Description:
Purine riboswitch aptamer: a 102-nucleotide sequence from Bacillus sp. 1NLA3E.
RNA sequence: UAAUUAAAUAGGAUCUCUACUCAUAUAAUAGCGGGAAUAUGGCCCGCAAGUUUCUACCAGAUUGCCGUAAAUAAUCUGACUAUGGGUGAGCAAUGGAAGAAG
Numbered sequence: 001u002a003a004u005u006a007a008a009u010a011g012g013a014u015c016u017c018u019a020c021u022c023a024u025a026u027a028a029u030a031g032c033g034g035g036a037a038u039a040u041g042g043c044c045c046g047c048a049a050g051u052u053u054c055u056a057c058c059a060g061a062u063u064g065c066c067g068u069a070a071a072u073a074a075u076c077u078g079a080c081u082a083u084g085g086g087u088g089a090g091c092a093a094u095g096g097a098a099g100a101a102g
Stems, first nucleotide, its partner, number of pairs: 018088008029049001031047005058078007